[Rfam]
UnaL2 LINE 3' element: a 54-nucleotide sequence from Esox lucius. It scores 58 bits against the family's covariance model. On this family, see Baba et al., RNA 2004: "Solution structure of an RNA stem-loop derived from the 3' conserved region of eel LINE UnaL2".

RNA sequence: UGUGCACACUAUUGCAAAUUGCUCUGGAUAAGAGUGUCUGCUAAAUGACUGAAA
Numbered sequence: 001u002g003u004g005c006a007c008a009c010u011a012u013u014g015c016a017a018a019u020u021g022c023u024c025u026g027g028a029u030a031a032g033a034g035u036g037u038c039u040g041c042u043a044a045a046u047g048a049c050u051g052a053a054a
Stems, first nucleotide, its partner, number of pairs: 013043001014041003020036006